[Rfam]
RNA sequence: GUCUGACACGGUCCAACGGUGGCAAGUCUUGCCCCCACGUUCGGCCGCGGCGCCAUGAC
Numbered sequence: 001g002u003c004u005g006a007c008a009c010g011g012u013c014c015a016a017c018g019g020u021g022g023c024a025a026g027u028c029u030u031g032c033c034c035c036c037a038c039g040u041u042c043g044g045c046c047g048c049g050g051c052g053c054c055a056u057g058a059c
Base pairs, nucleotide, nucleotide: 007049009047010046011045012044013043016041018035019034021033022032023031024030025029
Selenocysteine insertion sequence 3: a 59-nucleotide RNA sequence from Desulfobulbus oligotrophicus. For this family Rfam cites "Solution structure of mRNA hairpins promoting selenocysteine incorporation in Escherichia coli and their base-specific interaction with special elongation factor SELB" (Huttenhofer et al., RNA, 1996). The family's consensus secondary structure was predicted with CMfinder. Lineage of the source: Bacteria > Pseudomonadati > Desulfobulbia > Desulfobulbales > Desulfobulbus.